[Rfam]
RNA sequence: AGCAGUCAGAAAUGAACUUGCUCAUAAAAGUACAGUAGCAGUGAGCAGUAAGUCUGUAAUUUUAUGUAUGAGCUGGUUUCUGACUAAA
Numbered sequence: 001a002g003c004a005g006u007c008a009g010a011a012a013u014g015a016a017c018u019u020g021c022u023c024a025u026a027a028a029a030g031u032a033c034a035g036u037a038g039c040a041g042u043g044a045g046c047a048g049u050a051a052g053u054c055u056g057u058a059a060u061u062u063u064a065u066g067u068a069u070g071a072g073c074u075g076g077u078u079u080c081u082g083a084c085u086a087a088a
Base pairs, nucleotide, nucleotide: 004085005084006083007082008081009080010079012077013076015074017072018071019070020069023066024065025064026063027062028061029060031058032057033056034055035054
RNA: mir-590 microRNA precursor family